RNA sequence: UCACGCAUGGUGUGGUUGUCUGGUAUGUUUUAGCGAAAUGAAUUAGAUCAAAUCACGCCAUGCGUGUCUA
Numbered sequence: 001u002c003a004c005g006c007a008u009g010g011u012g013u014g015g016u017u018g019u020c021u022g023g024u025a026u027g028u029u030u031u032a033g034c035g036a037a038a039u040g041a042a043u044u045a046g047a048u049c050a051a052a053u054c055a056c057g058c059c060a061u062g063c064g065u066g067u068c069u070a
Stems, first nucleotide, its partner, number of pairs: 003065014017050002034046001036044002
Shown here is a 70-nucleotide sequence from Alteromonas pelagimontana, a member of the family "RNA-OUT". Rfam classes the family as an antisense RNA. On this family, see Kittle et al., J Mol Biol 1989: "Insertion sequence IS10 anti-sense pairing initiates by an interaction between the 5' end of the target RNA and a loop in the anti-sense RNA". About the family: Transposition of insertion sequence IS10 is regulated by an anti-sense RNA which inhibits transposase expression when IS10 is present in multiple copies per cell. The anti-sense RNA (RNA-OUT) consists of a stem domain topped by a flexibly paired loop; the 5' end of the target molecule, RNA-IN, is complementary to the top of the loop, and complementarity extends for 35 base-pairs down one side of RNA-OUT. This bacterial RNA is also found in the genomic sequence of eukaryotic organisms. This is probably due to vector contamination. Taxonomically the source falls in Alteromonas (Bacteria, Pseudomonadati, Gammaproteobacteria, Alteromonadaceae). A search with the family's covariance model found it, with a score of 43 bits.